RNA sequence: AUUGAAUGGUUUGUUUUAGCCUGAGCUAUGGAAAAUUAUAGCCGCAUAGCUUCUUGCUAAAACAAACCAGUCGAU
Numbered sequence: 001a002u003u004g005a006a007u008g009g010u011u012u013g014u015u016u017u018a019g020c021c022u023g024a025g026c027u028a029u030g031g032a033a034a035a036u037u038a039u040a041g042c043c044g045c046a047u048a049g050c051u052u053c054u055u056g057c058u059a060a061a062a063c064a065a066a067c068c069a070g071u072c073g074a075u
Base pairs, nucleotide, nucleotide: 003073004072005071007069008068009067010066012064013063014062015061016060017059018058019057020056023053024051025050026049027048028047029046030045
Rfam assigns this 75-nucleotide RNA sequence from Caenorhabditis japonica to the family "mir-355 microRNA precursor family". It scores 75 bits against the family's covariance model. Pairs were carried over by alignment from the consensus structure, which was predicted with RNAalifold. The organism belongs to Caenorhabditis, within Eukaryota.